[Rfam]
RNA sequence: GAAGCCUCUUGGGGCUUAUUUAGACAAUGGUUUCAUCAUUUCGUCUGAAUAGAGUCUGAAGAGUCUUU
Numbered sequence: 001g002a003a004g005c006c007u008c009u010u011g012g013g014g015c016u017u018a019u020u021u022a023g024a025c026a027a028u029g030g031u032u033u034c035a036u037c038a039u040u041u042c043g044u045c046u047g048a049a050u051a052g053a054g055u056c057u058g059a060a061g062a063g064u065c066u067u068u
Stems, first nucleotide, its partner, number of pairs: 001068004006063005012057006018050008026040006
This 68-nucleotide RNA from Homo sapiens belongs to the Rfam family "mir-4427 microRNA precursor family". NCBI's taxonomy places the organism under Eukaryota, Boreoeutheria, Primates, Hominoidea, Homo. The base pairs follow the family's consensus structure, which was predicted with RNAalifold.